The family of this 292-nucleotide RNA sequence is "Archaeal RNase P". Pairs were carried over by alignment from the consensus structure, which is taken from published work.
RNA sequence: GGGAGCAGGAGGGUCGCUGACAGUGUACGACACUGAGGAAAGUCCCCUCUCCGUGAUGCGAGUGGCUCGACGCAAGUCGGGGGUCCGGGAGGGCCGGCUCUGCAACAGAAACGAACUGCCCCGGGAGUACGAUGAAUCCGCGAGGAGGAGGUUUCCCGACGGUGGCUGGAACGAGCAACCCCGCUGGAGCAAGUCCAAGCAGGCCCGUAGUGCAUCAGCAGGGCCGGGUAGGAUGCAUAGUUGAAUGCGACCAGCCGAAAGGUGAACAGAAAGGGGCUUAUUCCCUGCACCC
Number, nucleotide and partner (000 for none) at each position: 001g292002g291003g290004a000005g288006c287007a286008g285009g284010a282011g281012g252013g251014u250015c249016g248017c247018u000019g000020a000021c035022a034023g033024u032025g031026u000027a000028c000029g000030a000031c025032a024033c023034u022035g021036a000037g000038g000039a000040a279041a278042g277043u000044c276045c275046c274047c273048u272049c189050u188051c187052c186053g000054u220055g219056a000057u217058g216059c000060g000061a185062g184063u183064g182065g181066c081067u080068c079069g078070a077071c000072g000073c000074a000075a000076g000077u070078c069079g068080g067081g066082g095083g094084u093085c092086c091087g000088g000089g000090a000091g086092g085093g084094c083095c082096g180097g179098c000099u000100c000101u177102g176103c175104a000105a000106c000107a000108g000109a000110a000111a000112c000113g000114a000115a000116c165117u164118g163119c161120c000121c000122c158123g157124g156125g155126a154127g000128u000129a000130c000131g000132a000133u000134g000135a000136a000137u145138c144139c000140g000141c000142g000143a000144g138145g137146a000147g000148g000149a000150g000151g000152u000153u000154u126155c125156c124157c123158g122159a000160c000161g119162g000163u118164g117165g116166c000167u000168g000169g000170a000171a000172c000173g000174a000175g103176c102177a101178a000179c097180c096181c065182c064183g063184c062185u061186g052187g051188a050189g049190c000191a000192a000193g234194u233195c232196c231197a000198a000199g000200c000201a000202g225203g224204c223205c222206c221207g000208u000209a000210g000211u000212g000213c000214a000215u000216c058217a057218g000219c055220a054221g206222g205223g204224c203225c202226g000227g000228g000229u000230a000231g196232g195233a194234u193235g000236c000237a000238u000239a000240g000241u000242u000243g000244a000245a000246u000247g017248c016249g015250a014251c013252c012253a000254g000255c000256c000257g000258a000259a000260a000261g000262g000263u000264g000265a000266a000267c000268a000269g000270a000271a000272a048273g047274g046275g045276g044277c042278u041279u040280a000281u011282u010283c000284c009285c008286u007287g006288c005289a000290c003291c002292c001
Source information
Ribonuclease P (RNase P) is a ubiquitous endoribonuclease, found in archaea, bacteria and eukarya as well as chloroplasts and mitochondria. Its best characterised activity is the generation of mature 5'-ends of tRNAs by cleaving the 5'-leader elements of precursor-tRNAs. Cellular RNase Ps are ribonucleoproteins. RNA from bacterial RNase Ps retains its catalytic activity in the absence of the protein subunit, i.e. it is a ribozyme. The family's RNA type in Rfam is ribozyme.